The record is a 201-nucleotide RNA sequence from Aquibacillus salsiterrae, which matches "6S / SsrS RNA" in Rfam. From the family's description: E. coli 6S RNA was the first non coding RNA to be sequenced, but its function was unknown until recently. It consists of 184 nucleotides that fold into an extended hairpin structure with a large single-stranded internal bulge. The 6S RNA specifically associates with RNA polymerase holoenzyme containing the sigma70 specificity factor. This interaction represses expression from a sigma70-dependent promoter during stationary phase. 6S RNA homologs have recently been identified in most bacterial genomes. Many Gram-positive species have two copies of 6S RNA. In Bacillus subtilis, both copies appear to interact with RNA polymerase holoenzyme containing the housekeeping sigma factor and be expressed during different stages of growth. In many proteobacteria, 6S RNA may be processed from a transcript encoding homologs of the E. coli YgfA protein which is a putative 5-formyltetrahydrofolate cycloligase activity. Taxonomically the source falls in Aquibacillus (Bacteria, Bacillota, Caryophanales, Bacillaceae). The family's consensus secondary structure is taken from published work.
[Rfam]
RNA sequence: UGAGUCCUGAUGUGUUCGUCUUUUCUUAUCGUUUUGACCGAACAUUAUGUAUUCGGGAGCUUGACGUUUCAAUAUGGCGUGCAAGCCUCAUUAUGGAAGGUAUAGGUAAUGAGAGGAAGCAUAAAGUAUUGAACAGAGCACCCACCUGCUUGGAAGCGGGAUCAAAACGCAUGAAUUCAAGACGGCAUAAUUGGGAUUUAU
Numbered sequence: 001u002g003a004g005u006c007c008u009g010a011u012g013u014g015u016u017c018g019u020c021u022u023u024u025c026u027u028a029u030c031g032u033u034u035u036g037a038c039c040g041a042a043c044a045u046u047a048u049g050u051a052u053u054c055g056g057g058a059g060c061u062u063g064a065c066g067u068u069u070c071a072a073u074a075u076g077g078c079g080u081g082c083a084a085g086c087c088u089c090a091u092u093a094u095g096g097a098a099g100g101u102a103u104a105g106g107u108a109a110u111g112a113g114a115g116g117a118a119g120c121a122u123a124a125a126g127u128a129u130u131g132a133a134c135a136g137a138g139c140a141c142c143c144a145c146c147u148g149c150u151u152g153g154a155a156g157c158g159g160g161a162u163c164a165a166a167a168c169g170c171a172u173g174a175a176u177u178c179a180a181g182a183c184g185g186c187a188u189a190a191u192u193g194g195g196a197u198u199u200a201u
Stems, first nucleotide, its partner, number of pairs: 002199010012188004017184003030169004035164003038160002055143003059139004069132007081120002086116004